[Rfam]
RNA: Protozoan signal recognition particle RNA
Organism: Dispira parvispora
RNA sequence: UUGUCUAUGAGGGCUGAAGGCGGGUUAUUAGCGGUGGUUCAGGAGUUGUUUAAGCAGGGUUUGUCUUGUUGGAAUGAGGAGUUUGGCAUUGGGUACGUCGUGUAAACAACGUACUCGAUUCCAUUAAAGCGGUGGGAAAUGCGUCUAGGCUGGCAACAGAGCAGCGAAAACUACCCGCUCCAUCAUGGUCAAGAGAUCGCAGACCUUGUGGUAUAUUCUGAAUC
Numbered sequence: 001u002u003g004u005c006u007a008u009g010a011g012g013g014c015u016g017a018a019g020g021c022g023g024g025u026u027a028u029u030a031g032c033g034g035u036g037g038u039u040c041a042g043g044a045g046u047u048g049u050u051u052a053a054g055c056a057g058g059g060u061u062u063g064u065c066u067u068g069u070u071g072g073a074a075u076g077a078g079g080a081g082u083u084u085g086g087c088a089u090u091g092g093g094u095a096c097g098u099c100g101u102g103u104a105a106a107c108a109a110c111g112u113a114c115u116c117g118a119u120u121c122c123a124u125u126a127a128a129g130c131g132g133u134g135g136g137a138a139a140u141g142c143g144u145c146u147a148g149g150c151u152g153g154c155a156a157c158a159g160a161g162c163a164g165c166g167a168a169a170a171c172u173a174c175c176c177g178c179u180c181c182a183u184c185a186u187g188g189u190c191a192a193g194a195g196a197u198c199g200c201a202g203a204c205c206u207u208g209u210g211g212u213a214u215a216u217u218c219u220g221a222a223u224c
Base pairs, nucleotide, nucleotide: 033224034223035222039221040220041219042218043217044216057206058205059204060203061202062201063200064199065195066194069192070191071190072189074186075185076184077183078181079180080179081178082177084123085122086121088119089118090117091116092115093114094113095112096111097110098109100107101106125129131175132174133173134172135171140168142166143165144164150159151158152157
Dot-bracket structure: ................................(((...((((((............((((((((((..((((.(((((((((.(((.(((((((((((.((....)).))))))))))).))).(...).(((((....(.(((.....(((....)))....))).)..))))).))))).))))..)))).))...)))))))).........)))))))))